[Rfam]
RNA sequence: ACAGUACAAACUGAGCAGACCGUGAUAGAUUAUCAUGGAGUCGGGUCACACAGGUGACAGUGGAAUGAAUCCUUGCAUCCACGGGACAGUA
Numbered sequence: 001a002c003a004g005u006a007c008a009a010a011c012u013g014a015g016c017a018g019a020c021c022g023u024g025a026u027a028g029a030u031u032a033u034c035a036u037g038g039a040g041u042c043g044g045g046u047c048a049c050a051c052a053g054g055u056g057a058c059a060g061u062g063g064a065a066u067g068a069a070u071c072c073u074u075g076c077a078u079c080c081a082c083g084g085g086a087c088a089g090u091a
Base pairs, nucleotide, nucleotide: 010090011089012088013087016085018042019041020040022036023035024034025033026032027031045058046057047056048055049054060082061081062080063079064078
The family of this 91-nucleotide sequence from Mediterraneibacter sp. gm002 is "NiCo (Nickel/Cobalt) riboswitch aptamer".
On this family, see Furukawa et al., Mol Cell 2015: "Bacterial riboswitches cooperatively bind Ni(2+) or Co(2+) ions and control expression of heavy metal transporters".
Pairs were carried over by alignment from the consensus structure, which is taken from published work.
The organism belongs to Mediterraneibacter, within Bacteria.
A search with the family's covariance model found it, with a score of 75 bits.